[Rfam]
RNA sequence: UCAAACUGAAUAACCAAGCCGGAGACAGCAGGUGCGUUAAGCAUAAAAUUCCUGCCGAGGUUUGUUUUCUAACAUUCUAGAUGCACAAGGUUUGCACUGGGAUUAGAACACAUUUCACCCCGGCAUAUCACAGUCGGGGUUUGUUUUUGGCUUG
Numbered sequence: 001u002c003a004a005a006c007u008g009a010a011u012a013a014c015c016a017a018g019c020c021g022g023a024g025a026c027a028g029c030a031g032g033u034g035c036g037u038u039a040a041g042c043a044u045a046a047a048a049u050u051c052c053u054g055c056c057g058a059g060g061u062u063u064g065u066u067u068u069c070u071a072a073c074a075u076u077c078u079a080g081a082u083g084c085a086c087a088a089g090g091u092u093u094g095c096a097c098u099g100g101g102a103u104u105a106g107a108a109c110a111c112a113u114u115u116c117a118c119c120c121c122g123g124c125a126u127a128u129c130a131c132a133g134u135c136g137g138g139g140u141u142u143g144u145u146u147u148u149g150g151c152u153u154g
Stems, first nucleotide, its partner, number of pairs: 028055005034042002118139007
RNA: Ribosomal protein L10 leader
Organism: Phormidesmis priestleyi